[Rfam]
RNA sequence: CGCGUGGUUUAGGUAGUUUCAUGUUGUUGGGGUUCCUUUUUCUAACUCUGCAGCAUGAAACUGUCUUAAUUGCCAC
Numbered sequence: 001c002g003c004g005u006g007g008u009u010u011a012g013g014u015a016g017u018u019u020c021a022u023g024u025u026g027u028u029g030g031g032g033u034u035c036c037u038u039u040u041u042c043u044a045a046c047u048c049u050g051c052a053g054c055a056u057g058a059a060a061c062u063g064u065c066u067u068a069a070u071u072g073c074c075a076c
Stems, first nucleotide, its partner, number of pairs: 004073006011066009022055006029048003